[Rfam]
RNA: Iron response element I
Organism: Bos taurus
RNA sequence: CUGUCUCUUGUUUCAAUAUUAUUUGGACAGAACAG
Numbered sequence: 001c002u003g004u005c006u007c008u009u010g011u012u013u014c015a016a017u018a019u020u021a022u023u024u025g026g027a028c029a030g031a032a033c034a035g
Stems, first nucleotide, its partner, number of pairs: 001035004006031003010028001012027005017021001